[Rfam]
RNA sequence: AAGGUUUGCAAAUGGAGUCCCGAAAGGAUUCACUUGAUGAAAAGAGUGGAGAAGCCUUGUAACCGAAAAGAUAAAGGGGGAACAAUAGAAUG
Numbered sequence: 001a002a003g004g005u006u007u008g009c010a011a012a013u014g015g016a017g018u019c020c021c022g023a024a025a026g027g028a029u030u031c032a033c034u035u036g037a038u039g040a041a042a043a044g045a046g047u048g049g050a051g052a053a054g055c056c057u058u059g060u061a062a063c064c065g066a067a068a069a070g071a072u073a074a075a076g077g078g079g080g081a082a083c084a085a086u087a088g089a090a091u092g
Stems, first nucleotide, its partner, number of pairs: 018081004024058004029050007063077002